[Rfam]
RNA sequence: CAGCGACGCUCUGGAAAGCGGGCAGCGCCUGUCAUGGCACUGCCCCACCGAAGGGGUAAUCCCGGGGUCAAGCCCCCGGGGGAAAGCUCUCAGGUUCCGUGACAGAGGGGGCAGC
Dot-bracket structure: ......(.(((((......((((((..............)))))).(((((..(((...((((...............))))....))))).))).......))))).)......
Numbered sequence: 001c002a003g004c005g006a007c008g009c010u011c012u013g014g015a016a017a018g019c020g021g022g023c024a025g026c027g028c029c030u031g032u033c034a035u036g037g038c039a040c041u042g043c044c045c046c047a048c049c050g051a052a053g054g055g056g057u058a059a060u061c062c063c064g065g066g067g068u069c070a071a072g073c074c075c076c077c078g079g080g081g082g083a084a085a086g087c088u089c090u091c092a093g094g095u096u097c098c099g100u101g102a103c104a105g106a107g108g109g110g111g112c113a114g115c
Stems, first nucleotide, its partner, number of pairs: 007109001009107005020045006047095003050091002054089003060082004